[Rfam]
RNA sequence: GCUAGGCGCUGGCCGGUGAGAACGCCACGUCCUGUGGCAUCACCGGCACUAGUACGUCCUGUACG
Numbered sequence: 001g002c003u004a005g006g007c008g009c010u011g012g013c014c015g016g017u018g019a020g021a022a023c024g025c026c027a028c029g030u031c032c033u034g035u036g037g038c039a040u041c042a043c044c045g046g047c048a049c050u051a052g053u054a055c056g057u058c059c060u061g062u063a064c065g
Stems, first nucleotide, its partner, number of pairs: 012047006024038005052064004